Overview
This 100-nucleotide sequence from Cryobacterium tepidiphilum belongs to the Rfam family "Glycine riboswitch aptamer".
RNA sequence: CCGCUCUGAAAAGCAGCUGCGCUCGCCGCAGCUCGCCCACGGUGAAAGUCGCCUCCGCACCGAGGUGACGAAGCUCUCAGGCUGAGAUGACAGAGGGGGA
Numbered sequence: 001c002c003g004c005u006c007u008g009a010a011a012a013g014c015a016g017c018u019g020c021g022c023u024c025g026c027c028g029c030a031g032c033u034c035g036c037c038c039a040c041g042g043u044g045a046a047a048g049u050c051g052c053c054u055c056c057g058c059a060c061c062g063a064g065g066u067g068a069c070g071a072a073g074c075u076c077u078c079a080g081g082c083u084g085a086g087a088u089g090a091c092a093g094a095g096g097g098g099g100a
Stems, first nucleotide, its partner, number of pairs: 001098002004095005015033004035082003039077001042076001044074001048069007
Taxonomically the source falls in Cryobacterium (Bacteria, Actinomycetota, Micrococcales, Microbacteriaceae).